[Rfam]
RNA sequence: UAAAAGGGUCAGUUGGCUAAAUAUGCCACUCUCAUCUGUGAUUGGUGAGUGCUGUAUGGCAAUCAAGACAUAUGGCUGACAUAAUUUUUGUGGGAUUAUAGGGUUGGCUCGUUUAGCCGACCCUCCUU
Numbered sequence: 001u002a003a004a005a006g007g008g009u010c011a012g013u014u015g016g017c018u019a020a021a022u023a024u025g026c027c028a029c030u031c032u033c034a035u036c037u038g039u040g041a042u043u044g045g046u047g048a049g050u051g052c053u054g055u056a057u058g059g060c061a062a063u064c065a066a067g068a069c070a071u072a073u074g075g076c077u078g079a080c081a082u083a084a085u086u087u088u089u090g091u092g093g094g095a096u097u098a099u100a101g102g103g104u105u106g107g108c109u110c111g112u113u114u115a116g117c118c119g120a121c122c123c124u125c126c127u128u
Stems, first nucleotide, its partner, number of pairs: 008080005014028004029051001031049005052075007100124010
Shown here is a 128-nucleotide RNA from Lathyrus oleraceus, a member of the family "U11 spliceosomal RNA". The family is grouped with related families in Rfam's "U1 clan". The family's consensus secondary structure is taken from published work. A search with the family's covariance model found it, with a score of 76 bits.